[Rfam]
RNA sequence: GAAGUGAGCUAGACGAUCGCUGCUGCGUAGAUCUUCGUGAUUGAAACAGGGGAGGAAAGUCCGGGCUUCAUAGGGCAGGGUGCCAGGUAACGCCUGGGCGGCGAAAGCCGACGGCAAGUGCAGCAGAGAGGAGACCGCCAUUUUGCAACUGAUCUUCGGGUCAGCCUAGAAAAUGGUAAGGGUGAAAGGGUGCGGUAAGAGCGCACCGCGUGUCUGGUAACAGUUCACGGCAAGGUAAACCCCACCAGAAGCAAGACCAAAUAGGAAUCCAUUAGGCACGGCCCGUGCUGGAUUCGGGUAGGUCGCUUGAGCGUACGAGUGAUUGUACGCCUAGAGGAAUGAUCGUUCACGACAGAACCCGGCUUAUCGGCUCACUUCAUCA
Numbered sequence: 001g002a003a004g005u006g007a008g009c010u011a012g013a014c015g016a017u018c019g020c021u022g023c024u025g026c027g028u029a030g031a032u033c034u035u036c037g038u039g040a041u042u043g044a045a046a047c048a049g050g051g052g053a054g055g056a057a058a059g060u061c062c063g064g065g066c067u068u069c070a071u072a073g074g075g076c077a078g079g080g081u082g083c084c085a086g087g088u089a090a091c092g093c094c095u096g097g098g099c100g101g102c103g104a105a106a107g108c109c110g111a112c113g114g115c116a117a118g119u120g121c122a123g124c125a126g127a128g129a130g131g132a133g134a135c136c137g138c139c140a141u142u143u144u145g146c147a148a149c150u151g152a153u154c155u156u157c158g159g160g161u162c163a164g165c166c167u168a169g170a171a172a173a174u175g176g177u178a179a180g181g182g183u184g185a186a187a188g189g190g191u192g193c194g195g196u197a198a199g200a201g202c203g204c205a206c207c208g209c210g211u212g213u214c215u216g217g218u219a220a221c222a223g224u225u226c227a228c229g230g231c232a233a234g235g236u237a238a239a240c241c242c243c244a245c246c247a248g249a250a251g252c253a254a255g256a257c258c259a260a261a262u263a264g265g266a267a268u269c270c271a272u273u274a275g276g277c278a279c280g281g282c283c284c285g286u287g288c289u290g291g292a293u294u295c296g297g298g299u300a301g302g303u304c305g306c307u308u309g310a311g312c313g314u315a316c317g318a319g320u321g322a323u324u325g326u327a328c329g330c331c332u333a334g335a336g337g338a339a340u341g342a343u344c345g346u347u348c349a350c351g352a353c354a355g356a357a358c359c360c361g362g363c364u365u366a367u368c369g370g371c372u373c374a375c376u377u378c379a380u381c382a
Base pairs, nucleotide, nucleotide: 001378002377003376004375005374006373007372008371009370010369011367012347013346014345015344016343017342018341020052021051023049024048025047028044057365058364059363061362062361063360064359065358066251067250068249069248073284074283075282076281079246080245081244082243083097084096085095086094087093098112099110100109101108102107113242114241118240119239120236121235135181136180137177138176139175140174141173142172143171144170189207190206191205192204193203194202208231209229210228211227212226214223215222216221255304256303257302258301265295266294267293268292269291270290275289276288277287278286279285311330312329313328314327315326316325317324318323
About this RNA
The record is a 382-nucleotide RNA sequence from Acinetobacter sp. TGL-Y2, which matches "Bacterial RNase P class A" in Rfam. The match comes from Rfam's covariance-model search (332 bits). Taxonomically the source falls in Acinetobacter (Bacteria, Pseudomonadati, Moraxellales, Moraxellaceae).